[Rfam]
RNA: sroH RNA
RNA sequence: UUAUUCUAAUGGAGCUGAGCUUACUCAGCUGGAUGAAGCAGACAGAUUUACCCUGUCAUCCCGCUACCAGCUUCCGUUGGUCAGGCCAAGUCCGGUAAAGGCGAUUCUGAAUACCAGAGAACUCUGGCGAAACCCACCUCAAGGUGGGUUUU
Numbered sequence: 001u002u003a004u005u006c007u008a009a010u011g012g013a014g015c016u017g018a019g020c021u022u023a024c025u026c027a028g029c030u031g032g033a034u035g036a037a038g039c040a041g042a043c044a045g046a047u048u049u050a051c052c053c054u055g056u057c058a059u060c061c062c063g064c065u066a067c068c069a070g071c072u073u074c075c076g077u078u079g080g081u082c083a084g085g086c087c088a089a090g091u092c093c094g095g096u097a098a099a100g101g102c103g104a105u106u107c108u109g110a111a112u113a114c115c116a117g118a119g120a121a122c123u124c125u126g127g128c129g130a131a132a133c134c135c136a137c138c139u140c141a142a143g144g145u146g147g148g149u150u151u152u
Base pairs, nucleotide, nucleotide: 133148134147135146136145137144138143